[Rfam]
RNA sequence: UCCAUCGUGAGGUGGAGUCUGAAGGAAGCCUAAUGCAAAAUCUCGGUCUGACGAACAGAAACCACAUACAAGGCAUAUUUAGAGCGGACAAGUGUGCUGAACAACACAAAAUCCGAUACCACCCGAGCUCUACGGUGUAAAUGUGGCAGAUAUAUGAGAGGAAAGUUACCGUU
Numbered sequence: 001u002c003c004a005u006c007g008u009g010a011g012g013u014g015g016a017g018u019c020u021g022a023a024g025g026a027a028g029c030c031u032a033a034u035g036c037a038a039a040a041u042c043u044c045g046g047u048c049u050g051a052c053g054a055a056c057a058g059a060a061a062c063c064a065c066a067u068a069c070a071a072g073g074c075a076u077a078u079u080u081a082g083a084g085c086g087g088a089c090a091a092g093u094g095u096g097c098u099g100a101a102c103a104a105c106a107c108a109a110a111a112u113c114c115g116a117u118a119c120c121a122c123c124c125g126a127g128c129u130c131u132a133c134g135g136u137g138u139a140a141a142u143g144u145g146g147c148a149g150a151u152a153u154a155u156g157a158g159a160g161g162a163a164a165g166u167u168a169c170c171g172u173u
Stems, first nucleotide, its partner, number of pairs: 001016006028173001030171001035166002041159005046151005062146006073138003080132006086114003092107004
This 173-nucleotide RNA sequence from Natranaerobius trueperi belongs to the Rfam family "Group II catalytic intron D1-D4-3". Gene Ontology term of the family: Group II intron splicing. The organism belongs to Natranaerobius, within Bacteria. From the family's description: Group II introns are found in rRNA, tRNA and mRNA of organelles in fungi, plants and protists, and also in mRNA in bacteria.